[Rfam]
RNA: Fluoride riboswitch aptamer (crcB RNA motif)
Organism: Vibrio sp. 99-8-1
RNA sequence: UAAUUGACCGGAGAUGAUGUUCCUCCUUGCUAUUUGGUGACUGCCUAGUUACCUCAUUAAACAGUAGCAAAACCGCCUUUGAGCUGAUGACGUCUGGUAAUAC
Dot-bracket structure: .........[[[[..((((((.]]]]................................................((......))....)))))).........
Numbered sequence: 001u002a003a004u005u006g007a008c009c010g011g012a013g014a015u016g017a018u019g020u021u022c023c024u025c026c027u028u029g030c031u032a033u034u035u036g037g038u039g040a041c042u043g044c045c046u047a048g049u050u051a052c053c054u055c056a057u058u059a060a061a062c063a064g065u066a067g068c069a070a071a072a073c074c075g076c077c078u079u080u081g082a083g084c085u086g087a088u089g090a091c092g093u094c095u096g097g098u099a100a101u102a103c
Stems, first nucleotide, its partner, number of pairs: 010026004016094006075084002